[Rfam]
RNA sequence: AGCUUUGCGCAGUGGCAGUAUCGUAGCCAAUGAGGUUUAUCCGAGGCGCGAUUAUUGCUAAUUGAAAAAUAGUUAAGAUGGUAAAUUUAUGUAAUGUUAUGCCUGCGUUGGCCUUUUUAAAAAAC
Numbered sequence: 001a002g003c004u005u006u007g008c009g010c011a012g013u014g015g016c017a018g019u020a021u022c023g024u025a026g027c028c029a030a031u032g033a034g035g036u037u038u039a040u041c042c043g044a045g046g047c048g049c050g051a052u053u054a055u056u057g058c059u060a061a062u063u064g065a066a067a068a069a070u071a072g073u074u075a076a077g078a079u080g081g082u083a084a085a086u087u088u089a090u091g092u093a094a095u096g097u098u099a100u101g102c103c104u105g106c107g108u109u110g111g112c113c114u115u116u117u118u119a120a121a122a123a124a125c
Base pairs, nucleotide, nucleotide: 020052021051022050023049024048026047027046028045034042035041080113081112082111084109085108086107088105089104091102092101093100
RNA: U4 spliceosomal RNA